Shown here is a 132-nucleotide sequence from Caligus rogercresseyi, a member of the family "U4 spliceosomal RNA". The family's consensus secondary structure is taken from published work. A search with the family's covariance model found it, with a score of 55 bits. U4 small nuclear RNA (U4 snRNA) is a component of the major U2-dependent spliceosome. The family's RNA type in Rfam is spliceosomal small nuclear RNA.
RNA sequence: AGCUUUGCACAGUGGCGAUACAGUGAUCCAAUGAUCGAUUAGAGAGGUGCUGUUAUUGGUAGUUGAAAAAAUUGCUUCUUUAUAUUCAAAAUUUUUCUUACAUAUAUAAAUUUUUAUUGAAAUGCCUUUAUU
Numbered sequence: 001a002g003c004u005u006u007g008c009a010c011a012g013u014g015g016c017g018a019u020a021c022a023g024u025g026a027u028c029c030a031a032u033g034a035u036c037g038a039u040u041a042g043a044g045a046g047g048u049g050c051u052g053u054u055a056u057u058g059g060u061a062g063u064u065g066a067a068a069a070a071a072u073u074g075c076u077u078c079u080u081u082a083u084a085u086u087c088a089a090a091a092u093u094u095u096u097c098u099u100a101c102a103u104a105u106a107u108a109a110a111u112u113u114u115u116a117u118u119g120a121a122a123u124g125c126c127u128u129u130a131u132u
Stems, first nucleotide, its partner, number of pairs: 020053005026048001028047002035043002079108001081106005088099002091096001121132004